Small nucleolar RNA SNORA26: a 122-nucleotide sequence from Sapajus apella.
RNA sequence: GUGCCCUUUUAAGGUUGACCCAGUGCUUUAAGAGGCUAACAGAGAACGGUAAAGUAAGUCUCCAUAAAACCCAGAGAAGAGACUGGAAAUCUCCUCUUUGGAUCCUGUCUGGUGUCAUACCU
Numbered sequence: 001g002u003g004c005c006c007u008u009u010u011a012a013g014g015u016u017g018a019c020c021c022a023g024u025g026c027u028u029u030a031a032g033a034g035g036c037u038a039a040c041a042g043a044g045a046a047c048g049g050u051a052a053a054g055u056a057a058g059u060c061u062c063c064a065u066a067a068a069a070c071c072c073a074g075a076g077a078a079g080a081g082a083c084u085g086g087a088a089a090u091c092u093c094c095u096c097u098u099u100g101g102a103u104c105c106u107g108u109c110u111g112g113u114g115u116c117a118u119a120c121c122u
Base pairs, nucleotide, nucleotide: 002051003050004049005048007046008045009044010043014040015039016038017037019035021032058116060114062112063111064110071101072100073099074098075097076096077095079093080092081091084089
Rfam links the family to the GO terms nucleolus and RNA processing. Rfam describes the family as follows. The snoRNA HBI-6 belong to the H/ACA family of snoRNAs, guiding the pseudouridylation of position U4522 if the 28S rRNA. HBI-6 is the human orthologue of mouse MBI-6 snoRNA. By type it is an H/ACA-box small nucleolar RNA. The literature on the family includes a 2001 paper in EMBO J by Huttenhofer et al., "RNomics: an experimental approach that identifies 201 candidates for novel, small, non-messenger RNAs in mouse".